[Rfam]
The record is a 107-nucleotide RNA sequence from Prevotella veroralis, which matches "Bacteroidales small SRP" in Rfam.
The family's consensus secondary structure is taken from published work.
The source organism's lineage runs through Bacteria, Pseudomonadati, Bacteroidota, Prevotellaceae and Prevotella veroralis.
Rfam classes the family as a non-coding RNA gene.
For this family Rfam cites "A high-resolution transcriptome map identifies small RNA regulation of metabolism in the gut microbe Bacteroides thetaiotaomicron" (Ryan et al., Nat Commun, 2020).

RNA sequence: UUCAUACGGACAAGUCUCCUACGACCAGCUCCCUUCAAAUCCCCCAGGUUGGGAACAAAGCAAGGGUAGAAGGUUGUAGCGGUGCGAUAGGAAUCGCUUGUCCACCU
Numbered sequence: 001u002u003c004a005u006a007c008g009g010a011c012a013a014g015u016c017u018c019c020u021a022c023g024a025c026c027a028g029c030u031c032c033c034u035u036c037a038a039a040u041c042c043c044c045c046a047g048g049u050u051g052g053g054a055a056c057a058a059a060g061c062a063a064g065g066g067u068a069g070a071a072g073g074u075u076g077u078a079g080c081g082g083u084g085c086g087a088u089a090g091g092a093a094u095c096g097c098u099u100g101u102c103c104a105c106c107u
Stems, first nucleotide, its partner, number of pairs: 008103008017092005022086002024083002